[Rfam]
RNA: Burkholderia sRNA 54
RNA sequence: CCGUUUCUCGGGUUCUGGCAAUGGCCCUCGGAUAAAGCCGGAACCUUUUUUGGCCGACCUUCGCCGGUCGGCCACUUUCUA
Numbered sequence: 001c002c003g004u005u006u007c008u009c010g011g012g013u014u015c016u017g018g019c020a021a022u023g024g025c026c027c028u029c030g031g032a033u034a035a036a037g038c039c040g041g042a043a044c045c046u047u048u049u050u051u052g053g054c055c056g057a058c059c060u061u062c063g064c065c066g067g068u069c070g071g072c073c074a075c076u077u078u079c080u081a
Stems, first nucleotide, its partner, number of pairs: 010046010025031002051074009